[Rfam]
RNA sequence: GUGAUGCCCGUGGCCGGGUCACCGCCGGCGUCGGUGAGCCCGAUGCCGAGCUCGCCGGCCUCGGCCACCUCGGUCAUCAC
Numbered sequence: 001g002u003g004a005u006g007c008c009c010g011u012g013g014c015c016g017g018g019u020c021a022c023c024g025c026c027g028g029c030g031u032c033g034g035u036g037a038g039c040c041c042g043a044u045g046c047c048g049a050g051c052u053c054g055c056c057g058g059c060c061u062c063g064g065c066c067a068c069c070u071c072g073g074u075c076a077u078c079a080c
Base pairs, nucleotide, nucleotide: 001080002079003078004077005076008073009072010071012069013068015042016041017040018039023036024035025034026033027032044067045066046064047063048062049061050060052058
RNA: L4-Archaeoglobi ribosomal protein leades